Record summary: A member of the RNA family "TPP riboswitch aptamer (THI element)" from Marinitoga piezophila, 111 nucleotides long. Gene Ontology term of the family: thiamine pyrophosphate binding.
RNA sequence: GUAACCCGCCGGGGGAGCUGCUGAUACCGCAGCUGAGAUUAAGGUGGAAGCCUUAGACCCCAGCACCUGAUCCGGGUAAUACCGGCGUAGGGAGUGCGGUAAAAAGGAUAA
Numbered sequence: 001g002u003a004a005c006c007c008g009c010c011g012g013g014g015g016a017g018c019u020g021c022u023g024a025u026a027c028c029g030c031a032g033c034u035g036a037g038a039u040u041a042a043g044g045u046g047g048a049a050g051c052c053u054u055a056g057a058c059c060c061c062a063g064c065a066c067c068u069g070a071u072c073c074g075g076g077u078a079a080u081a082c083c084g085g086c087g088u089a090g091g092g093a094g095u096g097c098g099g100u101a102a103a104a105a106g107g108a109u110a111a
Base pairs, nucleotide, nucleotide: 006099007098008097009096011061012060013059014058017033018032019031020030021029040055041054042053043052044051066091067090068089069088072085073084074083075082